[Rfam]
RNA: Plasmid-encoded Shigella sRNA A
RNA sequence: UGGCUGAGAAAAGAGUUUUAAUUUUUUGUAAGAGGCCGGUGAGUAUUCCGGCUUCAGGCAACAGGCGUAAACGGAGAGAAAUUAUGUUUGAA
Numbered sequence: 001u002g003g004c005u006g007a008g009a010a011a012a013g014a015g016u017u018u019u020a021a022u023u024u025u026u027u028g029u030a031a032g033a034g035g036c037c038g039g040u041g042a043g044u045a046u047u048c049c050g051g052c053u054u055c056a057g058g059c060a061a062c063a064g065g066c067g068u069a070a071a072c073g074g075a076g077a078g079a080a081a082u083u084a085u086g087u088u089u090g091a092a
Stems, first nucleotide, its partner, number of pairs: 001067002004064003008059001013055003017051002020047003072090004077085001